[Rfam]
RNA sequence: ACUCGUCUGGGCGAGUAUAAAUAGUAAUUAGGCCUAGAGCGUCCCGGUAGCUGCCGGGGGGUUAG
Numbered sequence: 001a002c003u004c005g006u007c008u009g010g011g012c013g014a015g016u017a018u019a020a021a022u023a024g025u026a027a028u029u030a031g032g033c034c035u036a037g038a039g040c041g042u043c044c045c046g047g048u049a050g051c052u053g054c055c056g057g058g059g060g061g062u063u064a065g
Stems, first nucleotide, its partner, number of pairs: 001016004006038006025064003032040001042059007